[Rfam]
RNA sequence: UGGAGAACCGGCGAUGGAACCCGCCUGAACUCGUUUCGAACCGCACACUGCUGAUAGUUCCUACACACGA
Numbered sequence: 001u002g003g004a005g006a007a008c009c010g011g012c013g014a015u016g017g018a019a020c021c022c023g024c025c026u027g028a029a030c031u032c033g034u035u036u037c038g039a040a041c042c043g044c045a046c047a048c049u050g051c052u053g054a055u056a057g058u059u060c061c062u063a064c065a066c067a068c069g070a
Stems, first nucleotide, its partner, number of pairs: 010025004016061005043051002
Shown here is a 70-nucleotide RNA sequence from Bifidobacterium longum, a member of the family "Fluoride riboswitch aptamer (crcB RNA motif)". NCBI's taxonomy places the organism under Bacteria, Bacillati, Actinomycetes, Bifidobacteriaceae, Bifidobacterium longum. The base pairs follow the family's consensus structure, which is taken from published work.